Nucleotides: 102
Base pairs, nucleotide, nucleotide: 019087020086021085022084023083024082025081029049031047032046033045034044059077060076061075062074063073064072
Number, partner (000 for none) and nucleotide at each position: 001000u002000a003000a004000a005000u006000a007000c008000g009000u010000u011000a012000u013000u014000a015000a016000a017000u018000a019087a020086c021085u022084c023083a024082u025081a026000u027000a028000a029049a030000u031047c032046c033045g034044a035000u036000a037000a038000u039000a040000u041000g042000g043000u044034u045033c046032g047031g048000u049029u050000g051000u052000u053000u054000c055000u056000a057000c058000a059077g060076g061075a062074a063073u064072a065000c066000c067000u068000u069000a070000a071000a072064u073063a074062u075061u076060c077059c078000c079000g080000c081025u082024a083023u084022g085021a086020g087019u088000a089000a090000a091000u092000c093000u094000a095000u096000g097000u098000a099000u100000a101000a102000u
Annotation
This 102-nucleotide RNA sequence from Clostridium botulinum belongs to the Rfam family "Purine riboswitch aptamer". The sequence is in the family's curated seed alignment. The literature on the family includes a 2003 paper in Cell by Mandal et al., "Riboswitches Control Fundamental Biochemical Pathways in Bacillus subtilis and Other Bacteria". Taxonomically the source falls in Clostridium botulinum C (Bacteria, Clostridia, Clostridiaceae, Clostridium).